A member of the RNA family "Betaproteobacteria toxic small RNA" from Massilia violaceinigra, 62 nucleotides long. The base pairs follow the family's consensus structure, which was predicted with WAR. From the family's description: Overexpression in amino aid rich medium attenuates growth, suggesting role in repressing amino acid intake and metabolism. The family has 51 seed sequences and 951 matches in Rfam 15.1.
[Rfam]
RNA sequence: UGUCUCCUCUAUUCUUCAUCUGAAAAAUAGAUUCAAGCCCGUUUUGCCACGGGCUUUUUUUC
Numbered sequence: 001u002g003u004c005u006c007c008u009c010u011a012u013u014c015u016u017c018a019u020c021u022g023a024a025a026a027a028u029a030g031a032u033u034c035a036a037g038c039c040c041g042u043u044u045u046g047c048c049a050c051g052g053g054c055u056u057u058u059u060u061u062c
Base pairs, nucleotide, nucleotide: 008031009030010029011028012027013026015024036055037054038053039052040051041050042049